[Rfam]
RNA: mir-125 microRNA precursor family
RNA sequence: GCUCCCUGAGACCCUUUGAUUGUCUCGUUAAACAUAAUUCUAUAUGUUAAAUGUAAUCAGGCAGCCAAAGUGACUCAGGUGUGC
Numbered sequence: 001g002c003u004c005c006c007u008g009a010g011a012c013c014c015u016u017u018g019a020u021u022g023u024c025u026c027g028u029u030a031a032a033c034a035u036a037a038u039u040c041u042a043u044a045u046g047u048u049a050a051a052u053g054u055a056a057u058c059a060g061g062c063a064g065c066c067a068a069a070g071u072g073a074c075u076c077a078g079g080u081g082u083g084c
Stems, first nucleotide, its partner, number of pairs: 001084002005079006012072001014070005020064006026053004034043003